[Rfam]
RNA: Small nucleolar RNA SNORA27
RNA sequence: CACCCUCCUCUCACUUUACCAGUUAGACAUUUAUUGUCUUGAUUGGUCAUUCAAGGUGGGUAAAGUAUCUCCUUUUUAUAACCCAAGCAAAUGACACUCAUUUGUCUUGGAUCCUGUCAGAGGAAACAGUU
Numbered sequence: 001c002a003c004c005c006u007c008c009u010c011u012c013a014c015u016u017u018a019c020c021a022g023u024u025a026g027a028c029a030u031u032u033a034u035u036g037u038c039u040u041g042a043u044u045g046g047u048c049a050u051u052c053a054a055g056g057u058g059g060g061u062a063a064a065g066u067a068u069c070u071c072c073u074u075u076u077u078a079u080a081a082c083c084c085a086a087g088c089a090a091a092u093g094a095c096a097c098u099c100a101u102u103u104g105u106c107u108u109g110g111a112u113c114c115u116g117u118c119a120g121a122g123g124a125a126a127c128a129g130u131u
Base pairs, nucleotide, nucleotide: 035062036061037060038059039058043054044053045052046051070124071123072122073121074120075119084109085107087105088104089103090102091101092100